Small nucleolar RNA SNORA3/SNORA45 family: a 132-nucleotide RNA from Aquarana catesbeiana.
Its family is annotated with nucleolus and RNA processing in the Gene Ontology.
From the family's description: The members of this family belong to the H/ACA class of snoRNAs which are thought to guide the sites of modification of uridines to pseudouridines. This family includes mouse snoMBI-28 and human homologues ACA3 (SNORA3) and ACA3-2 (SNORA45). Both ACA3 and ACA3-2 share the same host gene. MBI-28, ACA3 and ACA3-2 are all predicted to guide the pseudouridylation of residues in 28S rRNA.
Taxonomically the source falls in Aquarana (Eukaryota, Bilateria, Dipnotetrapodomorpha, Anura).
RNA sequence: CCUGAGACUAGAGUCACACCUCUGCACUCUUAGUGGCUUUGGUGUGCUAGAGUUCUCAGAGAGUGACUGCUGAUCUUUAUUUACUGGUUGGUUCUCCAUGUAGCUCAACCAGUCACUGGUACAGCAACAUCC
Numbered sequence: 001c002c003u004g005a006g007a008c009u010a011g012a013g014u015c016a017c018a019c020c021u022c023u024g025c026a027c028u029c030u031u032a033g034u035g036g037c038u039u040u041g042g043u044g045u046g047c048u049a050g051a052g053u054u055c056u057c058a059g060a061g062a063g064u065g066a067c068u069g070c071u072g073a074u075c076u077u078u079a080u081u082u083a084c085u086g087g088u089u090g091g092u093u094c095u096c097c098a099u100g101u102a103g104c105u106c107a108a109c110c111a112g113u114c115a116c117u118g119g120u121a122c123a124g125c126a127a128c129a130u131c132c
Stems, first nucleotide, its partner, number of pairs: 002059005007053003012048002015046006024037002070124003075119002083113005089107003093103001